[Rfam]
RNA: 5' ureB small RNA
Organism: Oxalobacteraceae bacterium CAVE-383
RNA sequence: CUUCCUCGAUCUGCUGCGGCGCAAUGAAAUGGAUGUGCGUAUCGACGCCGCCGGCGGUGACGAUCAUGCCUUCGCCGGCGAUGAUUUCAGUGGCGCCGCCGAUGACCAUCGUCACGUUCGGCUGGAUGUCGGGAUUGCCGGCCUUGCCGAUGGCGGCGAUCUUGCCGCUUUUCAGGCCGAUAUCGGCCUUGACGAUGCCCCAGUGAUCGAUGAUGACUGCGUUCGUGAUGACGGUGUCCAUCACGUCCGCAUGAUUGCGCUGCGACUGGCCCAUGCCGUCGCGGAU
Numbered sequence: 001c002u003u004c005c006u007c008g009a010u011c012u013g014c015u016g017c018g019g020c021g022c023a024a025u026g027a028a029a030u031g032g033a034u035g036u037g038c039g040u041a042u043c044g045a046c047g048c049c050g051c052c053g054g055c056g057g058u059g060a061c062g063a064u065c066a067u068g069c070c071u072u073c074g075c076c077g078g079c080g081a082u083g084a085u086u087u088c089a090g091u092g093g094c095g096c097c098g099c100c101g102a103u104g105a106c107c108a109u110c111g112u113c114a115c116g117u118u119c120g121g122c123u124g125g126a127u128g129u130c131g132g133g134a135u136u137g138c139c140g141g142c143c144u145u146g147c148c149g150a151u152g153g154c155g156g157c158g159a160u161c162u163u164g165c166c167g168c169u170u171u172u173c174a175g176g177c178c179g180a181u182a183u184c185g186g187c188c189u190u191g192a193c194g195a196u197g198c199c200c201c202a203g204u205g206a207u208c209g210a211u212g213a214u215g216a217c218u219g220c221g222u223u224c225g226u227g228a229u230g231a232c233g234g235u236g237u238c239c240a241u242c243a244c245g246u247c248c249g250c251a252u253g254a255u256u257g258c259g260c261u262g263c264g265a266c267u268g269g270c271c272c273a274u275g276c277c278g279u280c281g282c283g284g285a286u
Stems, first nucleotide, its partner, number of pairs: 002285002005283001007281003012158006018076004023071001030053003034050002037048004057069003077148002081144001083142001085140001090138004095130001097128001099125002102123001104122001106120001108118001164270004170265002173262003177257001186220002190216001200209001223254003230247002234244003